[Rfam]
RNA sequence: UCCAAAAGCAGGUAAGCCACUGACUAACGCACAUUGUGUCAGUUGCUCGUUCCACUGUGCGUGUGACAGCGGCUAACCUGGUUUUGGGAGAACUUCUU
Numbered sequence: 001u002c003c004a005a006a007a008g009c010a011g012g013u014a015a016g017c018c019a020c021u022g023a024c025u026a027a028c029g030c031a032c033a034u035u036g037u038g039u040c041a042g043u044u045g046c047u048c049g050u051u052c053c054a055c056u057g058u059g060c061g062u063g064u065g066a067c068a069g070c071g072g073c074u075a076a077c078c079u080g081g082u083u084u085u086g087g088g089a090g091a092a093c094u095u096c097u098u
Base pairs, nucleotide, nucleotide: 005084006083007082009080010079011078012077015074016073017072018071020069021068022067024065025063026062028061029060030059031058032057033056035054036053
The family of this 98-nucleotide sequence from Mola mola is "mir-210 microRNA precursor family". For this family Rfam cites "Kaposi's sarcoma-associated herpesvirus expresses an array of viral microRNAs in latently infected cells" (Cai et al., Proc Natl Acad Sci U S A, 2005). The organism belongs to Mola, within Eukaryota.